[Rfam]
RNA sequence: GCCUGGAUAGCUCAGUUGGGAGAGCAUCAGACUUUCAAUCUGGGGUUCCAGGGUUCAAGCCCCUGAUCAGGUG
Numbered sequence: 001g002c003c004u005g006g007a008u009a010g011c012u013c014a015g016u017u018g019g020g021a022g023a024g025c026a027u028c029a030g031a032c033u034u035u036c037a038a039u040c041u042g043g044g045g046u047u048c049c050a051g052g053g054u055u056c057a058a059g060c061c062c063c064u065g066a067u068c069a070g071g072u073g
Stems, first nucleotide, its partner, number of pairs: 001072006010025004027043005049065005

Rfam assigns this 73-nucleotide RNA from Hirundo rustica to the family "tRNA".
The family's consensus secondary structure is taken from published work.
It scores 52 bits against the family's covariance model.
Its family is annotated with triplet codon-amino acid adaptor activity in the Gene Ontology.